[Rfam]
RNA sequence: UCUUUGCGUUAGGGAUAGUAACGACAUCCUUUUUUUGCCCUGUCCAAUACGCAAAUGGCAAAAAAAGAUAUAGUGAAUAGCCUGUUAAAAC
Numbered sequence: 001u002c003u004u005u006g007c008g009u010u011a012g013g014g015a016u017a018g019u020a021a022c023g024a025c026a027u028c029c030u031u032u033u034u035u036u037g038c039c040c041u042g043u044c045c046a047a048u049a050c051g052c053a054a055a056u057g058g059c060a061a062a063a064a065a066a067g068a069u070a071u072a073g074u075g076a077a078u079a080g081c082c083u084g085u086u087a088a089a090a091c
Stems, first nucleotide, its partner, number of pairs: 012083003016079002021074002026069003032064008